[Rfam]
RNA: Small nucleolar RNA snoR136
RNA sequence: UCAGCUUUGAAUUGUUUUUGUUGGUUCAUUCCGAUUUUGAUGAAGAACCGAAUCUGUCGAAGCUAAGAUUGACAAGGUUUCCCUCGCUAUCCAGUGUUUGCAUUGAGCAUUUGGACGUUGGGAAACUACAUUU
Numbered sequence: 001u002c003a004g005c006u007u008u009g010a011a012u013u014g015u016u017u018u019u020g021u022u023g024g025u026u027c028a029u030u031c032c033g034a035u036u037u038u039g040a041u042g043a044a045g046a047a048c049c050g051a052a053u054c055u056g057u058c059g060a061a062g063c064u065a066a067g068a069u070u071g072a073c074a075a076g077g078u079u080u081c082c083c084u085c086g087c088u089a090u091c092c093a094g095u096g097u098u099u100g101c102a103u104u105g106a107g108c109a110u111u112u113g114g115a116c117g118u119u120g121g122g123a124a125a126c127u128a129c130a131u132u133u
Stems, first nucleotide, its partner, number of pairs: 001067001003064003008059002021051007030044001032042001077126007085117002090115005099109003